[Rfam]
RNA: Small nucleolar RNA R12
RNA sequence: UGUUGGAUGAUGAGAAAAAUCAGACGGAUUCCCUAUGAUAUUUUGCCAAGCAAAAUAUGUGACAUAAUGUCCAGCUACUUCUGACAACA
Numbered sequence: 001u002g003u004u005g006g007a008u009g010a011u012g013a014g015a016a017a018a019a020u021c022a023g024a025c026g027g028a029u030u031c032c033c034u035a036u037g038a039u040a041u042u043u044u045g046c047c048a049a050g051c052a053a054a055a056u057a058u059g060u061g062a063c064a065u066a067a068u069g070u071c072c073a074g075c076u077a078c079u080u081c082u083g084a085c086a087a088c089a
Stems, first nucleotide, its partner, number of pairs: 001089005